Twister_sister_ribozyme: a 76-nucleotide RNA.
Pairs were carried over by alignment from the consensus structure, which is taken from published work.
RNA sequence: UUAAGCCGCAAGGCCCGCGCUCAGGCGUGACCGGCGCAAGUCCGGUGCCCUUCGGGGCGGCGCUCAUGGCUCGGAU
Numbered sequence: 001u002u003a004a005g006c007c008g009c010a011a012g013g014c015c016c017g018c019g020c021u022c023a024g025g026c027g028u029g030a031c032c033g034g035c036g037c038a039a040g041u042c043c044g045g046u047g048c049c050c051u052u053c054g055g056g057g058c059g060g061c062g063c064u065c066a067u068g069g070c071u072c073g074g075a076u
Stems, first nucleotide, its partner, number of pairs: 004071004013061003016040001018027003030046004047058004